Overview: Rfam assigns this 81-nucleotide RNA from Mikania micrantha to the family "Small nucleolar RNA Z199". Rfam 15.1 lists 953 matches to the family in 222 species. Its family is annotated with RNA processing and nucleolus in the Gene Ontology. By type it is a C/D-box small nucleolar RNA. The base pairs follow the family's consensus structure, which was predicted with PFOLD. NCBI's taxonomy places the organism under Eukaryota, Viridiplantae, Embryophyta, Gunneridae, Mikania.

RNA sequence: CAUCAAAUGACGAAGAAUUUAACUGCAACAAAAUGAUCGACUUUUUGUUCGUGAUUAUUAGUAUUUAAGUCUCUGAUGAUG
Numbered sequence: 001c002a003u004c005a006a007a008u009g010a011c012g013a014a015g016a017a018u019u020u021a022a023c024u025g026c027a028a029c030a031a032a033a034u035g036a037u038c039g040a041c042u043u044u045u046u047g048u049u050c051g052u053g054a055u056u057a058u059u060a061g062u063a064u065u066u067a068a069g070u071c072u073c074u075g076a077u078g079a080u081g
Stems, first nucleotide, its partner, number of pairs: 001081005039050002041047001